[Rfam]
RNA sequence: AAAAAAAAAGGGCUCGCAAGGAGCGAGCCAAUGGUAUCCGCGAUCGGUUCGCGAAUACUGAAUGGGAGAGGAGAAACCGGAGGAAGAGCUUAUGGGGAAACGUAAGUCUUCUCCGCGG
Numbered sequence: 001a002a003a004a005a006a007a008a009a010g011g012g013c014u015c016g017c018a019a020g021g022a023g024c025g026a027g028c029c030a031a032u033g034g035u036a037u038c039c040g041c042g043a044u045c046g047g048u049u050c051g052c053g054a055a056u057a058c059u060g061a062a063u064g065g066g067a068g069a070g071g072a073g074a075a076a077c078c079g080g081a082g083g084a085a086g087a088g089c090u091u092a093u094g095g096g097g098a099a100a101c102g103u104a105a106g107u108c109u110u111c112u113c114c115g116c117g118g
Stems, first nucleotide, its partner, number of pairs: 011029006037055001039053004078115004083111004088107005

This 118-nucleotide RNA sequence from Paludifilum halophilum belongs to the Rfam family "ylbH leader". It is annotated as a cis-regulatory leader. The base pairs follow the family's consensus structure. Rfam links the family to the GO term regulation of gene expression. About the family: This family is a putative regulatory RNA structure that is found upstream of the ylbH gene in B. subtilis and related low GC Gram-positive bacteria.